FMN riboswitch aptamer (RFN element): a 141-nucleotide RNA from Ornithinibacillus halotolerans. About the family: The RFN element is a highly conserved domain that is found frequently in the 5'-untranslated regions of prokaryotic mRNAs that encode for flavin mononucleotide (FMN) biosynthesis and transport proteins. Pairs were carried over by alignment from the consensus structure, which is taken from published work. The match comes from Rfam's covariance-model search (120 bits).
RNA sequence: UCCAAUCUUCGGGGCAGGGUGCAAUUCCCGACCGACGGUAAGAACAAAAGUUCAAGUCCGUGAGCCGUUUGUCUAAAGCAAAUGGUUGACCUGGUGUGAGUCCAGGACCGACAGUUAAAGUCUGGAUGGGAGAAGAUGAUC
Numbered sequence: 001u002c003c004a005a006u007c008u009u010c011g012g013g014g015c016a017g018g019g020u021g022c023a024a025u026u027c028c029c030g031a032c033c034g035a036c037g038g039u040a041a042g043a044a045c046a047a048a049a050g051u052u053c054a055a056g057u058c059c060g061u062g063a064g065c066c067g068u069u070u071g072u073c074u075a076a077a078g079c080a081a082a083u084g085g086u087u088g089a090c091c092u093g094g095u096g097u098g099a100g101u102c103c104a105g106g107a108c109c110g111a112c113a114g115u116u117a118a119a120g121u122c123u124g125g126a127u128g129g130g131a132g133a134a135g136a137u138g139a140u141c
Stems, first nucleotide, its partner, number of pairs: 005137006017029003031121002033110002035061004056108002064086003090106005112124003